Shown here is an 88-nucleotide sequence from Hahella chejuensis, a member of the family "t44 RNA". The base pairs follow the family's consensus structure, which was predicted with LocARNA. NCBI's taxonomy places the organism under Bacteria, Pseudomonadati, Hahellaceae, Hahella, Hahella chejuensis. It is annotated as a small RNA. From the family's description: This family consists of a number of bacterial RNA genes of between 135 and 170 bases in length. The t44 gene has been identified in several species of enteric bacteria but homologs have also been identified in Pseudomonas and Coxiella species.
[Rfam]
RNA sequence: UUGAAACCAUAAAAAACACACAUGCGUCGACACAUGUUUCGGGUGCCGCUCAAAUGCGGUUGGAGCAUGGGAUGCAUGGAGGUUAAAC
Numbered sequence: 001u002u003g004a005a006a007c008c009a010u011a012a013a014a015a016a017c018a019c020a021c022a023u024g025c026g027u028c029g030a031c032a033c034a035u036g037u038u039u040c041g042g043g044u045g046c047c048g049c050u051c052a053a054a055u056g057c058g059g060u061u062g063g064a065g066c067a068u069g070g071g072a073u074g075c076a077u078g079g080a081g082g083u084u085a086a087a088c
Stems, first nucleotide, its partner, number of pairs: 021078008033069009045060005